[Rfam]
RNA sequence: UCCACCCUACAAACCCCGAGUUCCCUUCUUCUCCCUCCUCCUCCUCCUCCAUGCUUCUCACAACAUCAUCAUCAUCAUCUUCUCCCCAUUACACGCAACAUGAAGCUCUAAGACCAACAUCACUCGACACGAUCAAGAUCUCACCACUUCAUGAAGAUCCUCAAGAUUCACGAGUUAUGAUCGAUUUGUUCUAGAUUCAAUUCUUUCAUGCUUUUGUGAUGUACUUUUGCUGUUAUUUUGGCCAC
Numbered sequence: 001u002c003c004a005c006c007c008u009a010c011a012a013a014c015c016c017c018g019a020g021u022u023c024c025c026u027u028c029u030u031c032u033c034c035c036u037c038c039u040c041c042u043c044c045u046c047c048u049c050c051a052u053g054c055u056u057c058u059c060a061c062a063a064c065a066u067c068a069u070c071a072u073c074a075u076c077a078u079c080u081u082c083u084c085c086c087c088a089u090u091a092c093a094c095g096c097a098a099c100a101u102g103a104a105g106c107u108c109u110a111a112g113a114c115c116a117a118c119a120u121c122a123c124u125c126g127a128c129a130c131g132a133u134c135a136a137g138a139u140c141u142c143a144c145c146a147c148u149u150c151a152u153g154a155a156g157a158u159c160c161u162c163a164a165g166a167u168u169c170a171c172g173a174g175u176u177a178u179g180a181u182c183g184a185u186u187u188g189u190u191c192u193a194g195a196u197u198c199a200a201u202u203c204u205u206u207c208a209u210g211c212u213u214u215u216g217u218g219a220u221g222u223a224c225u226u227u228u229g230c231u232g233u234u235a236u237u238u239u240g241g242c243c244a245c
Base pairs, nucleotide, nucleotide: 086241087240088239095233096232097231102142103141104139106137107136111133150221151220152219153214154213155212156211163205164204165203166202172198173197174196175195176194179191180190182188
RNA: TeloSII non coding RNA 30
Organism: Brassica carinata